[Rfam]
RNA: RAGATH-18 RNA
RNA sequence: UCUGUGGAGUGCUGCACAAACUGUAGUAGCUUGGGCAAGGCAUAGUACAAUGAAACAGGAA
Numbered sequence: 001u002c003u004g005u006g007g008a009g010u011g012c013u014g015c016a017c018a019a020a021c022u023g024u025a026g027u028a029g030c031u032u033g034g035g036c037a038a039g040g041c042a043u044a045g046u047a048c049a050a051u052g053a054a055a056c057a058g059g060a061a
Stems, first nucleotide, its partner, number of pairs: 001059005009048005022042002029036002